RNA: MIR6274 microRNA precursor family
RNA sequence: AAACAAAAUCUUUUUGCUAUUUCCGACUAAUAACAUAGUGAUACAUAGGAUAAUUUUUUCAUGUGUCAUUGUGUUAUUAGUCGGAAAUAGCAAAACAAUGUUA
Number, nucleotide and partner (000 for none) at each position: 001a000002a102003a101004c100005a099006a000007a000008a000009u000010c000011u000012u095013u094014u093015u092016g091017c090018u089019a088020u087021u000022u085023c084024c083025g082026a081027c080028u079029a078030a077031u076032a075033a074034c073035a072036u071037a070038g069039u068040g067041a066042u065043a064044c063045a062046u061047a000048g059049g058050a057051u000052a000053a000054u000055u000056u000057u050058u049059u048060c000061a046062u045063g044064u043065g042066u041067c040068a039069u038070u037071g036072u035073g034074u033075u032076a031077u030078u029079a028080g027081u026082c025083g024084g023085a022086a000087a020088u019089a018090g017091c016092a015093a014094a013095a012096c000097a000098a000099u005100g004101u003102u002103a000